sRNA-Xcc1: a 91-nucleotide sequence from Alteromonas confluentis.
The base pairs follow the family's consensus structure, which was predicted with RNAalifold.

RNA sequence: GGCCGGGUGGAGAGGCGUUAAUAAAACACCCGCAAGGGGAAUAGGCCCGGAGCAACUUAUGGUGCUCUAGUUGACACCCGGCUACCAGCUA
Numbered sequence: 001g002g003c004c005g006g007g008u009g010g011a012g013a014g015g016c017g018u019u020a021a022u023a024a025a026a027c028a029c030c031c032g033c034a035a036g037g038g039g040a041a042u043a044g045g046c047c048c049g050g051a052g053c054a055a056c057u058u059a060u061g062g063u064g065c066u067c068u069a070g071u072u073g074a075c076a077c078c079c080g081g082c083u084a085c086c087a088g089c090u091a
Stems, first nucleotide, its partner, number of pairs: 001083009014047003019043002029038003049068006
A search with the family's covariance model found it, with a score of 59 bits.